[Rfam]
RNA sequence: UGCUGGUCACAAGUUAGUGAGUUAUUUCCACGGAUUGUUCACAGUCAGUUACAGAUUGAACACUUUGUUCUAUUGUUUCUCCCCUUCUCAAUACCACAUUUGACUAGUGCUUU
Numbered sequence: 001u002g003c004u005g006g007u008c009a010c011a012a013g014u015u016a017g018u019g020a021g022u023u024a025u026u027u028c029c030a031c032g033g034a035u036u037g038u039u040c041a042c043a044g045u046c047a048g049u050u051a052c053a054g055a056u057u058g059a060a061c062a063c064u065u066u067g068u069u070c071u072a073u074u075g076u077u078u079c080u081c082c083c084c085u086u087c088u089c090a091a092u093a094c095c096a097c098a099u100u101u102g103a104c105u106a107g108u109g110c111u112u113u
Stems, first nucleotide, its partner, number of pairs: 001109008011100001015096001016092001018090004044074001047071002

Shown here is a 113-nucleotide RNA sequence from Otolemur garnettii, a member of the family "Y RNA". Lineage of the source: Eukaryota > Sarcopterygii > Theria > Boreoeutheria > Otolemur. By type it is a non-coding RNA gene. A search with the family's covariance model found it, with a score of 50 bits.